This 111-nucleotide RNA sequence from Rahnella aquatilis belongs to the Rfam family "RprA RNA".
The organism belongs to Rahnella aquatilis, within Bacteria.
The family's consensus secondary structure was predicted with PFOLD.
The match comes from Rfam's covariance-model search (75 bits).
Gene Ontology term of the family: mRNA binding.
From the family's description: Translational regulation of the stationary phase sigma factor RpoS is mediated by the formation of a double-stranded RNA stem-loop structure in the upstream region of the rpoS messenger RNA, occluding the translation initiation site.
[Rfam]
RNA sequence: ACAGUUCGGAUUUCAACCCACUGAUUUAUAUACAAGCUUCCCCCUAAGCUGGUAUAUCCCAAAUUGCUGUGUGUAGUCUUUGCCUGUCUUCUAUGACGGGCUUUUUUUUUA
Numbered sequence: 001a002c003a004g005u006u007c008g009g010a011u012u013u014c015a016a017c018c019c020a021c022u023g024a025u026u027u028a029u030a031u032a033c034a035a036g037c038u039u040c041c042c043c044c045u046a047a048g049c050u051g052g053u054a055u056a057u058c059c060c061a062a063a064u065u066g067c068u069g070u071g072u073g074u075a076g077u078c079u080u081u082g083c084c085u086g087u088c089u090u091c092u093a094u095g096a097c098g099g100g101c102u103u104u105u106u107u108u109u110u111a
Stems, first nucleotide, its partner, number of pairs: 002023004034045001036044001065073003082101007
Dot-bracket structure: .((((..............))))..........(.(.......))...................(((...)))........(((((((......)))))))..........
Record summary:
Rfam classes the family as a small RNA.